Rfam assigns this 75-nucleotide RNA to the family "ASpks TB sRNA". The literature on the family includes a 2009 paper in Mol Microbiol by Arnvig and Young, "Identification of small RNAs in Mycobacterium tuberculosis". A search with the family's covariance model found it, with a score of 72 bits. Pairs were carried over by alignment from the consensus structure, which is taken from published work.

[Rfam]
RNA sequence: CUUCAACGACCCCAGCCACAGCGGCCUGUUCUCGGCUCGGCCCUGCCCGUAGGUGGCCAGCAGGGCGCCUGCCUC
Numbered sequence: 001c002u003u004c005a006a007c008g009a010c011c012c013c014a015g016c017c018a019c020a021g022c023g024g025c026c027u028g029u030u031c032u033c034g035g036c037u038c039g040g041c042c043c044u045g046c047c048c049g050u051a052g053g054u055g056g057c058c059a060g061c062a063g064g065g066c067g068c069c070u071g072c073c074u075c
Base pairs, nucleotide, nucleotide: 015025016024017023031071038065043060044059045058047056048055049054